[Rfam]
RNA sequence: GCAGGCGGCCGGAUGAUCGCUGCCGCGCAAGCCGCGAGGCUAAGCACGGGAGAGGAAAGUCCGAACUCCGCAGGGCAGUGUGCCGGAUAACGUCCGGGACGGAUGGUUCAAGCCAUCUGGACGGCCAGUGCAACAGAGAACAUACCGCCUCGCGCAAGCGGGGUAAGGGUGAAAAGGUGCGGUAAGAGCGCACCGCGCGGUCAGUAAUGAACGCGGCAUGGUAAACCCCACACGGAGCAAGACCAAAUAGGCAGGGACUUCGCCGCUUCUCUCCAGGCGGCGAUGGCGUAUCGGCCCGGUGCGCCCAGGCGGAGAGACCGGCAGAGAACGAAAGUUCAAAACCGGAGCCGAAACCUGCGGGUAGGUUGCUAAAGCGCCGCAGUAAUGCGUCGCGUAGAGGAAUGAUCAUCUAAAACAGAAUUCGGCUUACGGGCCGUCUGCAAGA
Numbered sequence: 001g002c003a004g005g006c007g008g009c010c011g012g013a014u015g016a017u018c019g020c021u022g023c024c025g026c027g028c029a030a031g032c033c034g035c036g037a038g039g040c041u042a043a044g045c046a047c048g049g050g051a052g053a054g055g056a057a058a059g060u061c062c063g064a065a066c067u068c069c070g071c072a073g074g075g076c077a078g079u080g081u082g083c084c085g086g087a088u089a090a091c092g093u094c095c096g097g098g099a100c101g102g103a104u105g106g107u108u109c110a111a112g113c114c115a116u117c118u119g120g121a122c123g124g125c126c127a128g129u130g131c132a133a134c135a136g137a138g139a140a141c142a143u144a145c146c147g148c149c150u151c152g153c154g155c156a157a158g159c160g161g162g163g164u165a166a167g168g169g170u171g172a173a174a175a176g177g178u179g180c181g182g183u184a185a186g187a188g189c190g191c192a193c194c195g196c197g198c199g200g201u202c203a204g205u206a207a208u209g210a211a212c213g214c215g216g217c218a219u220g221g222u223a224a225a226c227c228c229c230a231c232a233c234g235g236a237g238c239a240a241g242a243c244c245a246a247a248u249a250g251g252c253a254g255g256g257a258c259u260u261c262g263c264c265g266c267u268u269c270u271c272u273c274c275a276g277g278c279g280g281c282g283a284u285g286g287c288g289u290a291u292c293g294g295c296c297c298g299g300u301g302c303g304c305c306c307a308g309g310c311g312g313a314g315a316g317a318c319c320g321g322c323a324g325a326g327a328a329c330g331a332a333a334g335u336u337c338a339a340a341a342c343c344g345g346a347g348c349c350g351a352a353a354c355c356u357g358c359g360g361g362u363a364g365g366u367u368g369c370u371a372a373a374g375c376g377c378c379g380c381a382g383u384a385a386u387g388c389g390u391c392g393c394g395u396a397g398a399g400g401a402a403u404g405a406u407c408a409u410c411u412a413a414a415a416c417a418g419a420a421u422u423c424g425g426c427u428u429a430c431g432g433g434c435c436g437u438c439u440g441c442a443a444g445a
Stems, first nucleotide, its partner, number of pairs: 001441010011430001012410007020052002023049003027045002057428003061425005066237004078233005083097005098122001100119008123228002128226002130222002145168002147164007176194006195217001196215004201210003241367004251358005374393003378389004

Bacterial RNase P class A: a 445-nucleotide RNA from Edaphobacter modestus. About the family: Ribonuclease P (RNase P) is a ubiquitous endoribonuclease, found in archaea, bacteria and eukarya as well as chloroplasts and mitochondria. The match comes from Rfam's covariance-model search (270 bits).